[Rfam]
RNA sequence: GUUGGAUAUGGCGACAUGUACCCAGUGACGAUAGGAGGCAAAAUUGUUGGAUCAAUGUGUGCCAUUGCAGGAGUUCUUACAAUCGCCCUGCCGGUACCAGUAAUCGUGUCUAAU
Number, nucleotide and partner (000 for none) at each position: 001g114002u113003u000004g111005g110006a000007u108008a107009u106010g105011g104012c000013g000014a101015c100016a000017u000018g097019u096020a095021c094022c000023c000024a000025g000026u000027g000028a000029c000030g000031a000032u000033a000034g000035g000036a000037g077038g076039c000040a074041a000042a000043a000044u000045u000046g000047u000048u000049g063050g062051a000052u000053c000054a000055a000056u000057g000058u000059g000060u000061g000062c050063c049064a000065u000066u000067g000068c000069a000070g000071g000072a000073g000074u040075u000076c038077u037078u000079a000080c000081a000082a000083u000084c000085g000086c000087c000088c000089u000090g000091c000092c000093g000094g021095u020096a019097c018098c000099a000100g015101u014102a000103a000104u011105c010106g009107u008108g007109u000110c005111u004112a000113a002114u001
The record is a 114-nucleotide RNA from Sinocyclocheilus anshuiensis, which matches "Potassium channel RNA editing signal" in Rfam. It is annotated as a cis-regulatory element. A search with the family's covariance model found it, with a score of 101 bits. The family's consensus secondary structure is taken from published work.